[Rfam]
RNA sequence: GGGAUAUGAUGAGUGGUCAAUGUGAGAUGGGUGUCCGUCCCUGCCUGAUUAUGACAAUUGGGCAUCCUCAUCUUAACCAUCUAAUCCC
Numbered sequence: 001g002g003g004a005u006a007u008g009a010u011g012a013g014u015g016g017u018c019a020a021u022g023u024g025a026g027a028u029g030g031g032u033g034u035c036c037g038u039c040c041c042u043g044c045c046u047g048a049u050u051a052u053g054a055c056a057a058u059u060g061g062g063c064a065u066c067c068u069c070a071u072c073u074u075a076a077c078c079a080u081c082u083a084a085u086c087c088c
Stems, first nucleotide, its partner, number of pairs: 001088004014079004029067007046060004
Rfam assigns this 88-nucleotide RNA sequence from Rosa chinensis to the family "Small nucleolar RNA Z279/snoR105/snoR108". The family's RNA type in Rfam is C/D-box small nucleolar RNA. About the family: This family includes the plant snoRNAs known as Z279, snoR105 and snoR108. The literature on the family includes a 2002 paper in Curr Biol by Marker et al., "Experimental RNomics: identification of 140 candidates for small non-messenger RNAs in the plant Arabidopsis thaliana". The source organism's lineage runs through Eukaryota, Viridiplantae, Spermatophyta, Pentapetalae and Rosa. Clan: snoU13 clan.